[Rfam]
RNA sequence: CGAGUCGAGGAGCGCUGCAGUCGCCAUAUUUCUGGCGGUCAGGCUCGGCCCGGUUACUCCCGUAAAACCGCGCUCGCUUUCA
Numbered sequence: 001c002g003a004g005u006c007g008a009g010g011a012g013c014g015c016u017g018c019a020g021u022c023g024c025c026a027u028a029u030u031u032c033u034g035g036c037g038g039u040c041a042g043g044c045u046c047g048g049c050c051c052g053g054u055u056a057c058u059c060c061c062g063u064a065a066a067a068c069c070g071c072g073c074u075c076g077c078u079u080u081c082a
Stems, first nucleotide, its partner, number of pairs: 002051001004049005021038006
The record is an 82-nucleotide sequence from Acidithiobacillus marinus, which matches "SAH (S-adenosyl-L-homocysteine) riboswitch aptamer" in Rfam.